A member of the RNA family "RNA Staph. aureus A" from Staphylococcus hominis, 123 nucleotides long. Rfam's curators write: Represses the translation of the transcriptional regulator MgrA by binding to its mRNA, enhances biofilm formation and decreases bacterial virulence. Other mRNAs, including SsaA-like enzymes involved in peptidoglycan metabolism and the secreted anti-inflammatory FLIPr protein were validated as direct targets of RsaA. The family's consensus secondary structure is taken from published work. Rfam links the family to the GO terms mRNA binding and sRNA-mediated gene silencing. The organism belongs to Staphylococcus hominis, within Bacteria.

RNA sequence: AGUUAAUAAAUCAAAAUUGUGCUGGGUAGCGACAGCACUUUUGCGAUUUGUUAAUGUUCAGAGUAGUAAUGAAGUUCUCCCAAACCAUACUACUUGAAGUACACUUUUUUAAAAGUGUACUUU
Numbered sequence: 001a002g003u004u005a006a007u008a009a010a011u012c013a014a015a016a017u018u019g020u021g022c023u024g025g026g027u028a029g030c031g032a033c034a035g036c037a038c039u040u041u042u043g044c045g046a047u048u049u050g051u052u053a054a055u056g057u058u059c060a061g062a063g064u065a066g067u068a069a070u071g072a073a074g075u076u077c078u079c080c081c082a083a084a085c086c087a088u089a090c091u092a093c094u095u096g097a098a099g100u101a102c103a104c105u106u107u108u109u110u111a112a113a114a115g116u117g118u119a120c121u122u123u
Stems, first nucleotide, its partner, number of pairs: 002055007012043005019038006065094004070089002076087001078084001097122011